Description: The record is a 98-nucleotide RNA from Drancourtella sp. An57, which matches "THF (Tetrahydrofolate) riboswitch aptamer" in Rfam. On this family, see Trausch et al., Structure 2011: "The structure of a tetrahydrofolate-sensing riboswitch reveals two ligand binding sites in a single aptamer". It scores 91 bits against the family's covariance model. Pairs were carried over by alignment from the consensus structure, which is taken from published work. The organism belongs to Drancourtella, within Bacteria. Rfam's curators write: Tetrahydrofolate (THF) riboswitch was first reported for Ames et al. as an RNA motif in 5' untranslated (5'-UTR)regions of folate transport and biosynthesis genes in Firmicutes genomes.
[Rfam]
RNA sequence: GGCAGAGUAGAAAUAUGUGCGUUAAGUGCCAUUCGGACGGGGAGUUGCCGGUGGACGAAAAGAAAUUUCUUGCGGUACAUAUUUCGCAUCCCGCUGCU
Numbered sequence: 001g002g003c004a005g006a007g008u009a010g011a012a013a014u015a016u017g018u019g020c021g022u023u024a025a026g027u028g029c030c031a032u033u034c035g036g037a038c039g040g041g042g043a044g045u046u047g048c049c050g051g052u053g054g055a056c057g058a059a060a061a062g063a064a065a066u067u068u069c070u071u072g073c074g075g076u077a078c079a080u081a082u083u084u085c086g087c088a089u090c091c092c093g094c095u096g097c098u
Base pairs, nucleotide, nucleotide: 001098002097003096004095005094010085011084012083013082014081015080016079017078018077019076020074021073022072026056027055029054030053031052032051034050035049036048040091041090042089044087060071061070062069063068